[Rfam]
RNA sequence: UCGGUUCCGGUUCACGCUCCAAAGCUCCAGGUAAGGCAAGGGCGACCCGGCGGCC
Numbered sequence: 001u002c003g004g005u006u007c008c009g010g011u012u013c014a015c016g017c018u019c020c021a022a023a024g025c026u027c028c029a030g031g032u033a034a035g036g037c038a039a040g041g042g043c044g045a046c047c048c049g050g051c052g053g054c055c
Stems, first nucleotide, its partner, number of pairs: 003055003007050004015044005

Shown here is a 55-nucleotide RNA sequence, a member of the family "L31-Actinobacteria ribosomal protein leader". On this family, see Eckert and Weinberg, BMC Microbiol 2020: "Discovery of 20 novel ribosomal leader candidates in bacteria and archaea".